Source information: A member of the RNA family "Burkholderia sRNA 37" from Burkholderia seminalis, 150 nucleotides long. The base pairs follow the family's consensus structure, which was predicted with RNAfold.

RNA sequence: GCCGGACCGCGCUUUUCACCCAUCGCCUCUCCGCCCGCCUUCGAUCCCUGCGGGCACUCCGUCCCCCGGCGAUGGACACCGUGACUGGGCGAGCAGACACGGUGCGCGGGCCGAUUUUCCGCCCCGGACUUCCCGUCCGGGGCGUUUUUG
Numbered sequence: 001g002c003c004g005g006a007c008c009g010c011g012c013u014u015u016u017c018a019c020c021c022a023u024c025g026c027c028u029c030u031c032c033g034c035c036c037g038c039c040u041u042c043g044a045u046c047c048c049u050g051c052g053g054g055c056a057c058u059c060c061g062u063c064c065c066c067c068g069g070c071g072a073u074g075g076a077c078a079c080c081g082u083g084a085c086u087g088g089g090c091g092a093g094c095a096g097a098c099a100c101g102g103u104g105c106g107c108g109g110g111c112c113g114a115u116u117u118u119c120c121g122c123c124c125c126g127g128a129c130u131u132c133c134c135g136u137c138c139g140g141g142g143c144g145u146u147u148u149u150g
Stems, first nucleotide, its partner, number of pairs: 003113003007109006020075008033055004040050001043047001056062002079102005085096003121143009

From the family's description: Identified by RNA-seq, RACE and Northern blot.